[Rfam]
RNA sequence: AGCAGCUCUCAGGUGAUGCACCCCAGAAUCUGGCUCCCUCCUCUCUGGUUCUAGGUGUGUCACCCGAGAACCACA
Numbered sequence: 001a002g003c004a005g006c007u008c009u010c011a012g013g014u015g016a017u018g019c020a021c022c023c024c025a026g027a028a029u030c031u032g033g034c035u036c037c038c039u040c041c042u043c044u045c046u047g048g049u050u051c052u053a054g055g056u057g058u059g060u061c062a063c064c065c066g067a068g069a070a071c072c073a074c075a
Stems, first nucleotide, its partner, number of pairs: 002074001005071001007069004012064006019057004025052006032045002

A member of the RNA family "mir-9223 microRNA precursor family" from Pipistrellus kuhlii, 75 nucleotides long. The organism belongs to Pipistrellus, within Eukaryota. The family's consensus secondary structure was predicted with RNAalifold. A search with the family's covariance model found it, with a score of 73 bits.